[Rfam]
Small nucleolar RNA Z161/Z228: a 97-nucleotide sequence from Musa acuminata. The source organism's lineage runs through Eukaryota, Streptophyta, Mesangiospermae, Musa and Musa acuminata. The family is grouped with related families in Rfam's "SNORD35 clan". On this family, see Chen et al., Nucleic Acids Res 2003: "The high diversity of snoRNAs in plants: identification and comparative study of 120 snoRNA genes from Oryza sativa". Its family is annotated with nucleolus and RNA processing in the Gene Ontology. Rfam classes the family as a C/D-box small nucleolar RNA.
RNA sequence: AAGCUAAAUGAUGAGUGUGGAUCUUUAAAUCUCAUGACGGUCAUCUGAGAUGCUUUCAUUAGUGUCCAGGACGAUGCAACUCCCAUCUCUGAUGGCU
Number, nucleotide and partner (000 for none) at each position: 001a097002a000003g000004c094005u000006a000007a000008a000009u000010g000011a000012u000013g000014a000015g000016u000017g000018u000019g000020g000021a000022u000023c000024u000025u000026u000027a000028a000029a000030u000031c000032u000033c000034a000035u000036g000037a000038c000039g000040g000041u000042c000043a000044u000045c000046u000047g000048a000049g000050a000051u064052g063053c062054u000055u000056u000057c000058a000059u000060u000061a000062g053063u052064g051065u000066c000067c000068a000069g000070g000071a000072c000073g000074a000075u000076g000077c000078a000079a000080c000081u000082c000083c000084c000085a000086u000087c000088u000089c000090u000091g000092a000093u000094g004095g000096c000097u001